[Rfam]
RNA sequence: AAAAAAAUGUGGGUGUAGGGUCUGAAAAAUUCAGAUAUUGUUGUGUUAUCAUCAACUUCUUCUCUUGCUUAAUCCACGAGAUUUGAGUCAAAUAACAACACUACAUUU
Numbered sequence: 001a002a003a004a005a006a007a008u009g010u011g012g013g014u015g016u017a018g019g020g021u022c023u024g025a026a027a028a029a030u031u032c033a034g035a036u037a038u039u040g041u042u043g044u045g046u047u048a049u050c051a052u053c054a055a056c057u058u059c060u061u062c063u064c065u066u067g068c069u070u071a072a073u074c075c076a077c078g079a080g081a082u083u084u085g086a087g088u089c090a091a092a093u094a095a096c097a098a099c100a101c102u103a104c105a106u107u108u
Stems, first nucleotide, its partner, number of pairs: 043101005055088004061081004
Small nucleolar RNA snoR97: a 108-nucleotide sequence from Actinidia chinensis.